[Rfam]
RNA sequence: UGCCCUAGCAGCGGGAACAGUUCUGCAGUGAGCGAUCGGUGCUCUGGAGUAUUGUUUCCGCUGCCAGGGUA
Number, nucleotide and partner (000 for none) at each position: 001u000002g070003c069004c068005c067006u000007a000008g064009c063010a062011g061012c060013g059014g058015g057016a056017a055018c054019a053020g052021u051022u000023c049024u048025g000026c046027a045028g044029u000030g000031a043032g042033c041034g040035a000036u000037c000038g000039g000040u034041g033042c032043u031044c028045u027046g026047g000048a024049g023050u000051a021052u020053u019054g018055u017056u016057u015058c014059c013060g012061c011062u010063g009064c008065c000066a000067g005068g004069g003070u002071a000
The family of this 71-nucleotide sequence from Gorilla gorilla is "mir-503 microRNA precursor family". Pairs were carried over by alignment from the consensus structure, which was predicted with RNAalifold. For this family Rfam cites "Identification of clustered microRNAs using an ab initio prediction method" (Sewer et al., BMC Bioinformatics, 2005). It is one of the family's seed sequences.